[Rfam]
Background
A member of the RNA family "Guanidine-I riboswitch aptamer" from Vagococcus elongatus, 103 nucleotides long. On this family, see Barrick et al., Proc Natl Acad Sci U S A 2004: "New RNA motifs suggest an expanded scope for riboswitches in bacterial genetic control". The match comes from Rfam's covariance-model search (84 bits). Rfam describes the family as follows. This family represents a conserved RNA structure found upstream of the ykkC and yxkD genes in Bacillus subtilis and related genes in other bacteria. The function of this family is unclear although it has been suggested that it may function to switch on efflux pumps and detoxification systems in response to harmful environmental molecules. The source organism's lineage runs through Bacteria, Bacillati, Bacillota, Bacilli and Vagococcus.
RNA sequence: UGAAAGAUUUUCUAGGGUUCCGUAUCUUAAUUACAGAUAGACUGGUCCAAGAGAAAACGCGUAAAAAAUUUACGUACCACGGAAGGAUAAAAGCCUGGGAGAA
Numbered sequence: 001u002g003a004a005a006g007a008u009u010u011u012c013u014a015g016g017g018u019u020c021c022g023u024a025u026c027u028u029a030a031u032u033a034c035a036g037a038u039a040g041a042c043u044g045g046u047c048c049a050a051g052a053g054a055a056a057a058c059g060c061g062u063a064a065a066a067a068a069u070u071u072a073c074g075u076a077c078c079a080c081g082g083a084a085g086g087a088u089a090a091a092a093g094c095c096u097g098g099g100a101g102a103a
Stems, first nucleotide, its partner, number of pairs: 008057005015048002020045002022042001023039005059075006078098001080101001084096003